[Rfam]
RNA sequence: GCAUUGCGAGGAUGAUGACAAAAUUAGAUGUGCGAGAGGUGAAUACCUCCAUGAGCUCAACUUUCGAGGCUUAUUGAUAUCCUGACUUGCGUUUGC
Number, nucleotide and partner (000 for none) at each position: 001g096002c095003a094004u000005u091006g090007c089008g088009a087010g086011g000012a000013u000014g000015a000016u000017g000018a000019c000020a000021a000022a000023a000024u000025u000026a000027g000028a000029u000030g000031u000032g000033c000034g000035a000036g000037a000038g000039g000040u000041g000042a000043a000044u000045a000046c000047c000048u000049c000050c000051a000052u000053g000054a000055g000056c000057u000058c000059a000060a000061c000062u000063u000064u000065c000066g000067a000068g000069g000070c000071u000072u000073a000074u000075u000076g000077a000078u000079a000080u000081c000082c000083u000084g000085a000086c010087u009088u008089g007090c006091g005092u000093u000094u003095g002096c001
The family of this 96-nucleotide RNA from Coffea canephora is "Small nucleolar RNA Z266".
The family's consensus secondary structure was predicted with PFOLD.